[Rfam]
RNA sequence: UGUUUGCUGUGAGGGCUCCUACUAGGAUGGUAUCUUAAGGGUAUGACUUUUAAGUGCAGCCCUUCUGAUUAUACCAAAUCUGAAUAUGGUUUCUGAGCAAAUC
Numbered sequence: 001u002g003u004u005u006g007c008u009g010u011g012a013g014g015g016c017u018c019c020u021a022c023u024a025g026g027a028u029g030g031u032a033u034c035u036u037a038a039g040g041g042u043a044u045g046a047c048u049u050u051u052a053a054g055u056g057c058a059g060c061c062c063u064u065c066u067g068a069u070u071a072u073a074c075c076a077a078a079u080c081u082g083a084a085u086a087u088g089g090u091u092u093c094u095g096a097g098c099a100a101a102u103c
Stems, first nucleotide, its partner, number of pairs: 002102006038064004

About this RNA:
The family of this 103-nucleotide RNA sequence from Miscanthus lutarioriparius is "Small nucleolar RNA Z118/Z121/Z120". The literature on the family includes a 2003 paper in Nucleic Acids Res by Chen et al., "The high diversity of snoRNAs in plants: identification and comparative study of 120 snoRNA genes from Oryza sativa". Rfam classes the family as a C/D-box small nucleolar RNA. The organism belongs to Miscanthus, within Eukaryota. Its family is annotated with nucleolus and RNA processing in the Gene Ontology.